[Rfam]
RNA sequence: UGCAGAUCACGAUAUCAUCGCCAGCAGUGCCUUGCACACUGGUGGUAGAAUGACCUUGAGACCCGCCCCGAUAUGAGCAUAAAAGUGGGAUGAUAAUCCCACGAUAUGCGAAUAUUGGGUAGGAUUGUGGGAGUGCGUAGCACGGAGCAAUCCGUUGGCA
Numbered sequence: 001u002g003c004a005g006a007u008c009a010c011g012a013u014a015u016c017a018u019c020g021c022c023a024g025c026a027g028u029g030c031c032u033u034g035c036a037c038a039c040u041g042g043u044g045g046u047a048g049a050a051u052g053a054c055c056u057u058g059a060g061a062c063c064c065g066c067c068c069c070g071a072u073a074u075g076a077g078c079a080u081a082a083a084a085g086u087g088g089g090a091u092g093a094u095a096a097u098c099c100c101a102c103g104a105u106a107u108g109c110g111a112a113u114a115u116u117g118g119g120u121a122g123g124a125u126u127g128u129g130g131g132a133g134u135g136c137g138u139a140g141c142a143c144g145g146a147g148c149a150a151u152c153c154g155u156u157g158g159c160a
Stems, first nucleotide, its partner, number of pairs: 001160003005063001007061002011057002015053003018049002020046004025041001027037003067119008077109004085102007122153007133143004
RNA: Clostridiales-1 RNA
Organism: [Ruminococcus] lactaris